[Rfam]
RNA sequence: CUAGCUGUUAUAACUUCUACUUAUAUAUCGUCAUAAUAAGGUUGACAGUUUCUAGCCAGUACCGUAAACACUGGACUAUAAGUAAAAAGUGUUUAACA
Numbered sequence: 001c002u003a004g005c006u007g008u009u010a011u012a013a014c015u016u017c018u019a020c021u022u023a024u025a026u027a028u029c030g031u032c033a034u035a036a037u038a039a040g041g042u043u044g045a046c047a048g049u050u051u052c053u054a055g056c057c058a059g060u061a062c063c064g065u066a067a068a069c070a071c072u073g074g075a076c077u078a079u080a081a082g083u084a085a086a087a088a089g090u091g092u093u094u095a096a097c098a
Stems, first nucleotide, its partner, number of pairs: 018084008030046004056074005